[Rfam]
RNA sequence: GGGCGUCGUCGCGACUGGCGUUUCAAGGUGGAGCACCACCGUGGAGCGGCGACGCCGGCCGACCUGCCGCACGCCUGGGCCCGGUCC
Numbered sequence: 001g002g003g004c005g006u007c008g009u010c011g012c013g014a015c016u017g018g019c020g021u022u023u024c025a026a027g028g029u030g031g032a033g034c035a036c037c038a039c040c041g042u043g044g045a046g047c048g049g050c051g052a053c054g055c056c057g058g059c060c061g062a063c064c065u066g067c068c069g070c071a072c073g074c075c076u077g078g079g080c081c082c083g084g085u086c087c
Stems, first nucleotide, its partner, number of pairs: 003055010015043001017075005028039004066080003
The family of this 87-nucleotide RNA from Capillimicrobium parvum is "ZMP/ZTP riboswitch aptamer (pfl RNA motif)". The base pairs follow the family's consensus structure, which is taken from published work.